[Rfam]
RNA sequence: CUGCGGUCACACGACUGGCGCAGGUGGGUAACCACCAGGGAGUGGAGUCGCGUGCAUCGCCCGCCUGGGUGCGCGCA
Numbered sequence: 001c002u003g004c005g006g007u008c009a010c011a012c013g014a015c016u017g018g019c020g021c022a023g024g025u026g027g028g029u030a031a032c033c034a035c036c037a038g039g040g041a042g043u044g045g046a047g048u049c050g051c052g053u054g055c056a057u058c059g060c061c062c063g064c065c066u067g068g069g070u071g072c073g074c075g076c077a
Stems, first nucleotide, its partner, number of pairs: 003051005010044003015039002017065004024035004054072005

A member of the RNA family "ZMP/ZTP riboswitch aptamer (pfl RNA motif)" from Flexivirga endophytica, 77 nucleotides long.
It scores 45 bits against the family's covariance model.